[Rfam]
RNA sequence: UGUAAAUGGAGCAGAAACCACUAAAAACGGGAGUAAUCGAAAAUCCAAAAGAGUAGAAACCCU
Numbered sequence: 001u002g003u004a005a006a007u008g009g010a011g012c013a014g015a016a017a018c019c020a021c022u023a024a025a026a027a028c029g030g031g032a033g034u035a036a037u038c039g040a041a042a043a044u045c046c047a048a049a050a051g052a053g054u055a056g057a058a059a060c061c062c063u
Stems, first nucleotide, its partner, number of pairs: 007020003030046003037057002

DUF805 RNA: a 63-nucleotide sequence from Emticicia aquatilis. The source organism's lineage runs through Bacteria, Pseudomonadati, Bacteroidota, Cytophagia and Emticicia. It is annotated as a cis-regulatory element. Pairs were carried over by alignment from the consensus structure, which is taken from published work.